[Rfam]
Streptomyces sRNA 4677: a 223-nucleotide RNA sequence from Streptomyces sp. YIM 130001. The organism belongs to Streptomyces, within Bacteria. It is annotated as a small RNA.
RNA sequence: CGUCCCGGUGGGCCACGGACCUCCCCGAAGAACUUGGGAAAGAACUACCCGCCCACCCACCCUCCCGGCCUGCGCCACCCGUUCGAGUGACCCACUUGCCGCAGCCGGAUGCAUAGGGUUACGUUCGCGGCAGCAACACCCGACAACCGCACAUAGUUCGGCCCCCGCCGGGACUGGCAUCCCGAACGAGGGCCUGACCUCUCAGGAAGAAAACCGCUUCCCG
Numbered sequence: 001c002g003u004c005c006c007g008g009u010g011g012g013c014c015a016c017g018g019a020c021c022u023c024c025c026c027g028a029a030g031a032a033c034u035u036g037g038g039a040a041a042g043a044a045c046u047a048c049c050c051g052c053c054c055a056c057c058c059a060c061c062c063u064c065c066c067g068g069c070c071u072g073c074g075c076c077a078c079c080c081g082u083u084c085g086a087g088u089g090a091c092c093c094a095c096u097u098g099c100c101g102c103a104g105c106c107g108g109a110u111g112c113a114u115a116g117g118g119u120u121a122c123g124u125u126c127g128c129g130g131c132a133g134c135a136a137c138a139c140c141c142g143a144c145a146a147c148c149g150c151a152c153a154u155a156g157u158u159c160g161g162c163c164c165c166c167g168c169c170g171g172g173a174c175u176g177g178c179a180u181c182c183c184g185a186a187c188g189a190g191g192g193c194c195u196g197a198c199c200u201c202u203c204a205g206g207a208a209g210a211a212a213a214c215c216g217c218u219u220c221c222c223g
Stems, first nucleotide, its partner, number of pairs: 007202002010199001011070004076089003080085001104131004160194005166188002170183004205221005